[Rfam]
RNA sequence: GGAAAGAAUCUGUUAAGCUCAGGAGGGAUAGCGCCUCUAUCUAUAUCUUAUAUUUGCAUAUACAUGCAUCAUAUCAUAUCAUGUGGCGCUAUCCAUCUUGAGCCUCACGGCUUCUUCCU
Numbered sequence: 001g002g003a004a005a006g007a008a009u010c011u012g013u014u015a016a017g018c019u020c021a022g023g024a025g026g027g028a029u030a031g032c033g034c035c036u037c038u039a040u041c042u043a044u045a046u047c048u049u050a051u052a053u054u055u056g057c058a059u060a061u062a063c064a065u066g067c068a069u070c071a072u073a074u075c076a077u078a079u080c081a082u083g084u085g086g087c088g089c090u091a092u093c094c095a096u097c098u099u100g101a102g103c104c105u106c107a108c109g110g111c112u113u114c115u116u117c118c119u
Stems, first nucleotide, its partner, number of pairs: 010110001017103008026094010
A member of the RNA family "MIR390 microRNA precursor family" from Lactuca saligna, 119 nucleotides long. The literature on the family includes a 2005 paper in Nucleic Acids Res by Gustafson et al., "ASRP: the Arabidopsis Small RNA Project Database". The family's consensus secondary structure was predicted with WAR.